[Rfam]
RNA sequence: UAAGGCGCUAUAGCCAAGUGGUUACGGCGACAGAUUAGAAAUCUGUUCCUCUUUGAGGGCGCAGGUUCGAGUCCUGCUGGCGUCGACGUCUUCUUUU
Numbered sequence: 001u002a003a004g005g006c007g008c009u010a011u012a013g014c015c016a017a018g019u020g021g022u023u024a025c026g027g028c029g030a031c032a033g034a035u036u037a038g039a040a041a042u043c044u045g046u047u048c049c050u051c052u053u054u055g056a057g058g059g060c061g062c063a064g065g066u067u068c069g070a071g072u073c074c075u076g077c078u079g080g081c082g083u084c085g086a087c088g089u090c091u092u093c094u095u096u097u
Stems, first nucleotide, its partner, number of pairs: 002092006013081004018077004028069003
Rfam assigns this 97-nucleotide sequence from Suillus subaureus to the family "Vault RNA". The match comes from Rfam's covariance-model search (42 bits). The organism belongs to Suillus, within Eukaryota. For this family Rfam cites "Evolution of Vault RNAs" (Stadler et al., Mol Biol Evol, 2009). Rfam classes the family as a non-coding RNA gene. Rfam 15.1 lists 2,873 matches to the family in 431 species. Rfam describes the family as follows. This family of RNAs are found as part of the enigmatic vault ribonucleoprotein complex. The complex consists of a major vault protein (MVP), two minor vault proteins (VPARP and TEP1), and several small untranslated RNA molecules. It has been suggested that the vault complex is involved in drug resistance.